[Rfam]
RNA sequence: AGGAGGAAGAGCCGCAGUUGCUAUGGCAGCUCUGGAAGCCUGGAUUCAGCCUCCGCAGGAACUACGGGGCUCGGGGCUCUCGGCUCUCCGUCCGCAGGGCCUGG
Numbered sequence: 001a002g003g004a005g006g007a008a009g010a011g012c013c014g015c016a017g018u019u020g021c022u023a024u025g026g027c028a029g030c031u032c033u034g035g036a037a038g039c040c041u042g043g044a045u046u047c048a049g050c051c052u053c054c055g056c057a058g059g060a061a062c063u064a065c066g067g068g069g070c071u072c073g074g075g076g077c078u079c080u081c082g083g084c085u086c087u088c089c090g091u092c093c094g095c096a097g098g099g100c101c102u103g104g
Base pairs, nucleotide, nucleotide: 003095005093006092007091009088010087011086012083013082014081020077021076022075024073025072028071029070030069031068032067033066034065036063039059040058041057042056
This 104-nucleotide RNA sequence from Nyctereutes procyonoides belongs to the Rfam family "mir-8834 microRNA precursor family". The match comes from Rfam's covariance-model search (43 bits). The family's consensus secondary structure was predicted with RNAalifold.